A member of the RNA family "Small nucleolar RNA SNORA11" from Rousettus aegyptiacus, 126 nucleotides long. A search with the family's covariance model found it, with a score of 63 bits. By type it is an H/ACA-box small nucleolar RNA. U107 (SNORA11) is a member of the H/ACA class of snoRNAs that guide the sites of modification of uridines to pseudouridines. This snoRNA was identified by RT-PCR from blood cells and its expression confirmed by Northern blot analysis. There is no predicted target for this guide snRNA. For this family Rfam cites "A novel experimental approach for systematic identification of box H/ACA snoRNAs from eukaryotes" (Gu et al., Nucleic Acids Res, 2005).
RNA sequence: GGGAUGUGAUCAGAGCCGGGUUCCUGAAGGAUGACUACUCUGUUUCCAACACAUCCAAUAGGAACUUGGUACUCCUCACAGGUGGCAGGAUGCUAUGACCUUCCUGUGACAUUAUGCCCUAUACAU
Numbered sequence: 001g002g003g004a005u006g007u008g009a010u011c012a013g014a015g016c017c018g019g020g021u022u023c024c025u026g027a028a029g030g031a032u033g034a035c036u037a038c039u040c041u042g043u044u045u046c047c048a049a050c051a052c053a054u055c056c057a058a059u060a061g062g063a064a065c066u067u068g069g070u071a072c073u074c075c076u077c078a079c080a081g082g083u084g085g086c087a088g089g090a091u092g093c094u095a096u097g098a099c100c101u102u103c104c105u106g107u108g109a110c111a112u113u114a115u116g117c118c119c120u121a122u123a124c125a126u
Stems, first nucleotide, its partner, number of pairs: 002056007013045004018040004024033001069119001072116001079108002082101001084099001086097002088094002